[Rfam]
RNA sequence: CUGCCUUAAACUAAUGAGCAAGGAAAAAACAAGCGACUGGUAGCACUGGUCGCGCGUCUUUCGUACGCAUGAAUUUUUGUUGGAUCAUAUAGGCUGGCCGGGAGCUGACACUGCCUACUUCGCAGGACUUUCCUGAGCAGGCCUCC
Numbered sequence: 001c002u003g004c005c006u007u008a009a010a011c012u013a014a015u016g017a018g019c020a021a022g023g024a025a026a027a028a029a030c031a032a033g034c035g036a037c038u039g040g041u042a043g044c045a046c047u048g049g050u051c052g053c054g055c056g057u058c059u060u061u062c063g064u065a066c067g068c069a070u071g072a073a074u075u076u077u078u079g080u081u082g083g084a085u086c087a088u089a090u091a092g093g094c095u096g097g098c099c100g101g102g103a104g105c106u107g108a109c110a111c112u113g114c115c116u117a118c119u120u121c122g123c124a125g126g127a128c129u130u131u132c133c134u135g136a137g138c139a140g141g142c143c144u145c146c
Base pairs, nucleotide, nucleotide: 004023005022006021007020033053034052035051036050037049038048039047040046054068055067056066057065091144092143093142094141095140097138099135100134102132103131104130111125112124113123114122
Shown here is a 146-nucleotide RNA sequence from Klebsormidium nitens, a member of the family "U12 minor spliceosomal RNA". By type it is a spliceosomal small nuclear RNA.